SAM riboswitch aptamer (S box leader): a 102-nucleotide RNA from Planococcus halotolerans. The SAM riboswitch is found upstream of a number of genes which code for proteins involved in methionine or cysteine biosynthesis in Gram-positive bacteria. The SAM riboswitch acts at the level of transcription termination control. The predicted structure consists of a complex stem-loop region followed by a single stem loop terminator region. An alternative and mutually exclusive form involves bases in the 3' segment of helix 1 with those in the 5' region of helix 5 to form a structure termed the anti-terminator form. This entry represents the conserved core of the complex structure involving helices 1-4. Lineage of the source: Bacteria > Bacilli > Caryophanales > Caryophanaceae > Planococcus.
[Rfam]
RNA sequence: UUCUUAUCAAGAGAGGUGGAGGGAUUUGGCCCUUUGAAGCCUCAGCAACAGACUGCAAAGUACUGUGCUAAAUCCAAAAGCGCUACAGCUUGAAGAUGAGAA
Numbered sequence: 001u002u003c004u005u006a007u008c009a010a011g012a013g014a015g016g017u018g019g020a021g022g023g024a025u026u027u028g029g030c031c032c033u034u035u036g037a038a039g040c041c042u043c044a045g046c047a048a049c050a051g052a053c054u055g056c057a058a059a060g061u062a063c064u065g066u067g068c069u070a071a072a073u074c075c076a077a078a079a080g081c082g083c084u085a086c087a088g089c090u091u092g093a094a095g096a097u098g099a100g101a102a
Stems, first nucleotide, its partner, number of pairs: 001102008013043005021032003026077004044069004049065002052061003073094001078091004